[Rfam]
The record is a 137-nucleotide RNA from Promicromonospora sukumoe, which matches "FMN riboswitch aptamer (RFN element)" in Rfam. The RFN element is a highly conserved domain that is found frequently in the 5'-untranslated regions of prokaryotic mRNAs that encode for flavin mononucleotide (FMN) biosynthesis and transport proteins. A search with the family's covariance model found it, with a score of 95 bits.
RNA sequence: ACACGUGCUCCGGGGUCGGUGAAAUUCCGAGCCGGCGGUGAUAGUCCGCGACCCGGGUCGCUCCUUCGGGAGAGCCCGGUUGACCUGGUGAGAUUCCAGGACCGACGGUUAAAGUCCGGAUGGGAGGAAGCACGUGC
Numbered sequence: 001a002c003a004c005g006u007g008c009u010c011c012g013g014g015g016u017c018g019g020u021g022a023a024a025u026u027c028c029g030a031g032c033c034g035g036c037g038g039u040g041a042u043a044g045u046c047c048g049c050g051a052c053c054c055g056g057g058u059c060g061c062u063c064c065u066u067c068g069g070g071a072g073a074g075c076c077c078g079g080u081u082g083a084c085c086u087g088g089u090g091a092g093a094u095u096c097c098a099g100g101a102c103c104g105a106c107g108g109u110u111a112a113a114g115u116c117c118g119g120a121u122g123g124g125a126g127g128a129a130g131c132a133c134g135u136g137c
Stems, first nucleotide, its partner, number of pairs: 003135007010126001017029003031115002033104002035049004044102002053079005084100005106118003
The source organism's lineage runs through Bacteria, Bacillati, Actinomycetes, Micrococcales and Promicromonospora.